Eukaryotic large subunit ribosomal RNA: a 594-nucleotide part of an RNA from Melampsora laricis-populina. Taxonomically the source falls in Melampsora laricis-populina (Eukaryota, Opisthokonta, Fungi, Pucciniomycetes). The family has 88 seed sequences and 107,465 matches in Rfam 15.1. Gene Ontology terms of the family: structural constituent of ribosome and ribosome.
RNA sequence: CGGGGAAAGAAGACCCUGUUGAGCUUGACUCUAGUUUGACAUUGUGAAAAGACAUAGAGGGUGUAGCAUAAGUGGGAGCGAAAGCGCCAGUGAAAUACCACUACCUUUAUCGUCUUUUUACUUAUUCAAUGAAGCGAAGCUGGGAUUAAUGUCUCACUUUUUAGUAUUAAAGUCUUAUUCAGGCUCAUUCGGGUUGAAGACAUUGUCAGAUGGGGAGUUUGGCUGGGGCGGCACAUCUGUUAAAUAAUAACGCAGGUGUCCUAAGGGGGGCUCAUUGAGAACAGAAAUCUCAAGUAGAACAAAAGGGUAAAAGUCCCCUUGAUUUUGAUUUUCAGUGUGAAUACAAACCAUGAAAGUGUGGCCUAUUGAUCCUUUAGUCCUUUAGAAUUUAAAGCUAGAGGUGCCAGAAAAGUUACCACAGGGAUAACUGGCUUGUGGCAGCCAAGCGUUCAUAGCGACGUUGCUUUUUGAUCCUUCGAUGUCGGCUCUUCCUAUCAUACCGAAGCAGAAUUCGGUAAGCGUUGGAUUGUUCACCCACUAAUAGGGAACGUGAGCUGGGUUUAGACCGUCGUGAGACAGGUUAGUUUUACCCUA
Numbered sequence: 001c002g003g004g005g006a007a008a009g010a011a012g013a014c015c016c017u018g019u020u021g022a023g024c025u026u027g028a029c030u031c032u033a034g035u036u037u038g039a040c041a042u043u044g045u046g047a048a049a050a051g052a053c054a055u056a057g058a059g060g061g062u063g064u065a066g067c068a069u070a071a072g073u074g075g076g077a078g079c080g081a082a083a084g085c086g087c088c089a090g091u092g093a094a095a096u097a098c099c100a101c102u103a104c105c106u107u108u109a110u111c112g113u114c115u116u117u118u119u120a121c122u123u124a125u126u127c128a129a130u131g132a133a134g135c136g137a138a139g140c141u142g143g144g145a146u147u148a149a150u151g152u153c154u155c156a157c158u159u160u161u162u163a164g165u166a167u168u169a170a171a172g173u174c175u176u177a178u179u180c181a182g183g184c185u186c187a188u189u190c191g192g193g194u195u196g197a198a199g200a201c202a203u204u205g206u207c208a209g210a211u212g213g214g215g216a217g218u219u220u221g222g223c224u225g226g227g228g229c230g231g232c233a234c235a236u237c238u239g240u241u242a243a244a245u246a247a248u249a250a251c252g253c254a255g256g257u258g259u260c261c262u263a264a265g266g267g268g269g270g271c272u273c274a275u276u277g278a279g280a281a282c283a284g285a286a287a288u289c290u291c292a293a294g295u296a297g298a299a300c301a302a303a304a305g306g307g308u309a310a311a312a313g314u315c316c317c318c319u320u321g322a323u324u325u326u327g328a329u330u331u332u333c334a335g336u337g338u339g340a341a342u343a344c345a346a347a348c349c350a351u352g353a354a355a356g357u358g359u360g361g362c363c364u365a366u367u368g369a370u371c372c373u374u375u376a377g378u379c380c381u382u383u384a385g386a387a388u389u390u391a392a393a394g395c396u397a398g399a400g401g402u403g404c405c406a407g408a409a410a411a412g413u414u415a416c417c418a419c420a421g422g423g424a425u426a427a428c429u430g431g432c433u434u435g436u437g438g439c440a441g442c443c444a445a446g447c448g449u450u451c452a453u454a455g456c457g458a459c460g461u462u463g464c465u466u467u468u469u470g471a472u473c474c475u476u477c478g479a480u481g482u483c484g485g486c487u488c489u490u491c492c493u494a495u496c497a498u499a500c501c502g503a504a505g506c507a508g509a510a511u512u513c514g515g516u517a518a519g520c521g522u523u524g525g526a527u528u529g530u531u532c533a534c535c536c537a538c539u540a541a542u543a544g545g546g547a548a549c550g551u552g553a554g555c556u557g558g559g560u561u562u563a564g565a566c567c568g569u570c571g572u573g574a575g576a577c578a579g580g581u582u583a584g585u586u587u588u589a590c591c592c593u594a
Base pairs, nucleotide, nucleotide: 003593004592005591007588008587015422016421017420018419020418021417022414023413024412025411026410028218029217030216031215035210036209037208038207039206040205041204044121045120046119047118048117049116050115051114052113053112054110055109056108057107058106059105060104071102072101073100074099075098078085079084125198126197127196128195129194135191136190137189138188143154144153145152146151171185172184173183174182175181221234222232223231224230235257236256237255238254239253240252260361261360266318267317268316269315270314271313272298273297275293276292277291278290279289280288299308300307323347324346325345328342329341330340331339349358350357351356372400373399374398375397376396377395380394381393382392383391431472433470435469437465438464439463440462441461442460446456447455483558484556485555486554487553488550489547490546491545492544493543496521499516500515501514502513503512504511523537524536525535527533564582565581566580567579568577569576570575